[Rfam]
RNA sequence: CCAGGGGCUUCGCGCCCCUGGCUAUUAUCUACCGCCCUUACAGGGCU
Numbered sequence: 001c002c003a004g005g006g007g008c009u010u011c012g013c014g015c016c017c018c019u020g021g022c023u024a025u026u027a028u029c030u031a032c033c034g035c036c037c038u039u040a041c042a043g044g045g046c047u
Base pairs, nucleotide, nucleotide: 001021002020003019004018005017006016007015008014034046035045036044037043038042
Dot-bracket structure: ((((((((.....))))))))............(((((...))))).